[Rfam]
RNA sequence: CUGUUAUACCGAAGAGAAAUCUUGUCAGGUCUACACGCAAGUGUUGAAUGAAAAUUUAAUCGUAUUUGUAAAUACGACACCUUGUGUGGAAGCUGUCCUUUAUGGACAGCUUUUUUGUCGCAC
Numbered sequence: 001c002u003g004u005u006a007u008a009c010c011g012a013a014g015a016g017a018a019a020u021c022u023u024g025u026c027a028g029g030u031c032u033a034c035a036c037g038c039a040a041g042u043g044u045u046g047a048a049u050g051a052a053a054a055u056u057u058a059a060u061c062g063u064a065u066u067u068g069u070a071a072a073u074a075c076g077a078c079a080c081c082u083u084g085u086g087u088g089g090a091a092g093c094u095g096u097c098c099u100u101u102a103u104g105g106a107c108a109g110c111u112u113u114u115u116u117g118u119c120g121c122a123c
Stems, first nucleotide, its partner, number of pairs: 008030003011025001012023003034088006043081001045079002047056003060077006089113010
This 123-nucleotide RNA belongs to the Rfam family "DUF3800-I RNA". The sequence is in the family's curated seed alignment. Pairs were carried over by alignment from the consensus structure, which is taken from published work. Rfam describes the family as follows. Actinobacteria, Firmicutes, Fusobacteria, Proteobacteria (1 example), Tenericutes (2 examples).